RNA: Potassium channel RNA editing signal
RNA sequence: GUCGGGUACGGCGAUAUGUGCCCAGGGACAGUUGGGGGAAAGCUGGUGGGCUCCAUGUGCGCCAUUGCUGGCGUGCUCACCAUCUCUUUGCCCGUGCCUGUCAUUGUGUCCAAC
Number, nucleotide and partner (000 for none) at each position: 001g114002u113003c000004g111005g110006g000007u108008a107009c106010g105011g104012c000013g102014a101015u100016a099017u000018g097019u096020g095021c094022c000023c000024a000025g000026g000027g000028a000029c000030a000031g000032u000033u000034g000035g000036g000037g077038g076039a000040a074041a000042g000043c000044u000045g000046g000047u000048g000049g063050g062051c061052u000053c000054c000055a000056u000057g000058u000059g000060c000061g051062c050063c049064a000065u000066u000067g000068c000069u000070g000071g000072c000073g000074u040075g000076c038077u037078c000079a000080c000081c000082a000083u000084c000085u000086c000087u000088u000089u000090g000091c000092c000093c000094g021095u020096g019097c018098c000099u016100g015101u014102c013103a000104u011105u010106g009107u008108g007109u000110c005111c004112a000113a002114c001